A member of the RNA family "MIR6450 microRNA precursor family" from Populus trichocarpa, 107 nucleotides long.
RNA sequence: AGGACCCACUGCUCAUGAGUCUUGCAUCAGGACCUAGGUCUCUUAGGUCCUGCGUCGGGACCCAAUCAUCUUGGGUCCUUUGUUAGGACCCAAGGUUUUUAGGUCUU
Numbered sequence: 001a002g003g004a005c006c007c008a009c010u011g012c013u014c015a016u017g018a019g020u021c022u023u024g025c026a027u028c029a030g031g032a033c034c035u036a037g038g039u040c041u042c043u044u045a046g047g048u049c050c051u052g053c054g055u056c057g058g059g060a061c062c063c064a065a066u067c068a069u070c071u072u073g074g075g076u077c078c079u080u081u082g083u084u085a086g087g088a089c090c091c092a093a094g095g096u097u098u099u100u101a102g103g104u105c106u107u
Stems, first nucleotide, its partner, number of pairs: 001107006008100001013095002016092002019089006029079009043065002046062005
Taxonomically the source falls in Populus (Eukaryota, eudicotyledons, Pentapetalae, Saliceae).